[Rfam]
RNA sequence: GCUGGGUGUGGUGGUACACACCUGUAGUCUCAGAUACUUAGGAGGCUGGGCAGGAGGAUUGGUGAGACCAGGAUUUCUGGGAUGUAGUGUGCCAUGCCCACUGGGUGUCUGUACUGAGUUCAGCAUCAAUAUGGUGACACCCUGGAGCGGGGCAUCACCAGCUGCCCAAGGAGAAGUGAACUGGCCCAGACUGGAAACAGCAGGUUACAACUCCCUGAGCAGUAGUGGGAUUGCGCCUGUGAAUCCCACUGUACUCUGGCCUGGGCAAACUAGCAAGACCUCGUCUCUU
Numbered sequence: 001g002c003u004g005g006g007u008g009u010g011g012u013g014g015u016a017c018a019c020a021c022c023u024g025u026a027g028u029c030u031c032a033g034a035u036a037c038u039u040a041g042g043a044g045g046c047u048g049g050g051c052a053g054g055a056g057g058a059u060u061g062g063u064g065a066g067a068c069c070a071g072g073a074u075u076u077c078u079g080g081g082a083u084g085u086a087g088u089g090u091g092c093c094a095u096g097c098c099c100a101c102u103g104g105g106u107g108u109c110u111g112u113a114c115u116g117a118g119u120u121c122a123g124c125a126u127c128a129a130u131a132u133g134g135u136g137a138c139a140c141c142c143u144g145g146a147g148c149g150g151g152g153c154a155u156c157a158c159c160a161g162c163u164g165c166c167c168a169a170g171g172a173g174a175a176g177u178g179a180a181c182u183g184g185c186c187c188a189g190a191c192u193g194g195a196a197a198c199a200g201c202a203g204g205u206u207a208c209a210a211c212u213c214c215c216u217g218a219g220c221a222g223u224a225g226u227g228g229g230a231u232u233g234c235g236c237c238u239g240u241g242a243a244u245c246c247c248a249c250u251g252u253a254c255u256c257u258g259g260c261c262u263g264g265g266c267a268a269a270c271u272a273g274c275a276a277g278a279c280c281u282c283g284u285c286u287c288u289u
Stems, first nucleotide, its partner, number of pairs: 001046003004023007028043003048287001049285003053281002059276003063272001066266001068264005077259005083253007091246001094244002097241001102239007109229002112227005118220005127164002132160006140152005165171002173214001175212003182207005191200003